RNA sequence: UCCCUGGCAGUCCAGUGGUUAGGACUCGGUGCUUUAACUGCCAAGGGCCCAGGUUCGAUCCCUGGUCAGGGAA
Numbered sequence: 001u002c003c004c005u006g007g008c009a010g011u012c013c014a015g016u017g018g019u020u021a022g023g024a025c026u027c028g029g030u031g032c033u034u035u036a037a038c039u040g041c042c043a044a045g046g047g048c049c050c051a052g053g054u055u056c057g058a059u060c061c062c063u064g065g066u067c068a069g070g071g072a073a
Stems, first nucleotide, its partner, number of pairs: 001072007010025004028042004049065005
Shown here is a 73-nucleotide RNA sequence from Lipotes vexillifer, a member of the family "tRNA". A search with the family's covariance model found it, with a score of 46 bits. Taxonomically the source falls in Lipotes (Eukaryota, Vertebrata, Mammalia, Theria).